[Rfam]
RNA sequence: AAACAGCACUCUGGAGAGACCUGGCGCGCCGGCAAGAUCGUGCGUGGCCCAGGCGCCGAAGGUGCAAACCCGCGGAUCACGCGCGGGGCAACUCUCAGGCAAAAGGACAGAGGGGCGGAA
Numbered sequence: 001a002a003a004c005a006g007c008a009c010u011c012u013g014g015a016g017a018g019a020c021c022u023g024g025c026g027c028g029c030c031g032g033c034a035a036g037a038u039c040g041u042g043c044g045u046g047g048c049c050c051a052g053g054c055g056c057c058g059a060a061g062g063u064g065c066a067a068a069c070c071c072g073c074g075g076a077u078c079a080c081g082c083g084c085g086g087g088g089c090a091a092c093u094c095u096c097a098g099g100c101a102a103a104a105g106g107a108c109a110g111a112g113g114g115g116c117g118g119a120a
Base pairs, nucleotide, nucleotide: 007114009112010111011110012109013108020053021052022051023050055100056099057098058096059095062094064092069087070086071085072084073083074082
A member of the RNA family "Glycine riboswitch aptamer" from Bordetella genomosp. 7, 120 nucleotides long. A search with the family's covariance model found it, with a score of 56 bits. The organism belongs to Bordetella, within Bacteria.